This 148-nucleotide RNA from Venatorbacter sp. C2-1 belongs to the Rfam family "Molybdenum/Tungsten riboswitch aptamer (Moco RNA motif)". It scores 80 bits against the family's covariance model.

[Rfam]
RNA sequence: AUAUUCAACUGACGCCGAGCUGAUCUGCCUAACGCUCACUCCCCUCAUCGGUGAGUUAUGGCAGCUCAGCCGUGGCAAUACUGCCACCGGGAUUCAGGGGAAACCCAGCUUCCUCCCAUGCUUGGAAAGGUGUCUUAUGCUGACCGAC
Dot-bracket structure: .....(....((((((..(((((.(((((....(((((((.........)))))))...))))).))))).(((((......))))).((((..(.(((....))).)..))))((.......))...))))))....).........

NCBI's taxonomy places the organism under Bacteria, Pseudomonadati, Pseudomonadota, Oceanospirillaceae, Venatoribacter.